[Rfam]
RNA sequence: CUAUAUUAAGCGCUGAAUCUGUACAGAGCGGGGGAACCGAAAAAGCAACGAUUUGCUUUAGGGGUGAAUCCCGGGUGUUUCCCGGGUAGGGUCACUCUCAUGACCCGAAUCCGUCAGCUAACCUCGUAAGCGUUAUGGGAGGGAAAC
Numbered sequence: 001c002u003a004u005a006u007u008a009a010g011c012g013c014u015g016a017a018u019c020u021g022u023a024c025a026g027a028g029c030g031g032g033g034g035a036a037c038c039g040a041a042a043a044a045g046c047a048a049c050g051a052u053u054u055g056c057u058u059u060a061g062g063g064g065u066g067a068a069u070c071c072c073g074g075g076u077g078u079u080u081c082c083c084g085g086g087u088a089g090g091g092u093c094a095c096u097c098u099c100a101u102g103a104c105c106c107g108a109a110u111c112c113g114u115c116a117g118c119u120a121a122c123c124u125c126g127u128a129a130g131c132g133u134u135a136u137g138g139g140a141g142g143g144a145a146a147c
Stems, first nucleotide, its partner, number of pairs: 011132004018027003028127006038061001062112003070086004089106004
The family of this 147-nucleotide RNA sequence from Thermoactinomyces daqus is "c-di-AMP riboswitch aptamer (ydaO/yuaA leader)". Pairs were carried over by alignment from the consensus structure.